SAM/SAH riboswitch aptamer: a 48-nucleotide sequence from Yoonia sediminilitoris. Rfam links the family to the GO terms S-adenosylmethionine metabolic process and regulation of gene expression. A search with the family's covariance model found it, with a score of 58 bits.
RNA sequence: GUGCUGUCACAACGGCUUCCUGACGUGGCAGAUGAUUUUACUGGAGCA
Number, nucleotide and partner (000 for none) at each position: 001g000002u000003g000004c031005u030006g029007u028008c027009a026010c025011a000012a000013c022014g021015g047016c046017u045018u000019c044020c043021u014022g013023a000024c000025g010026u009027g008028g007029c006030a005031g004032a000033u000034g000035a000036u000037u000038u000039u000040a000041c000042u000043g020044g019045a017046g016047c015048a000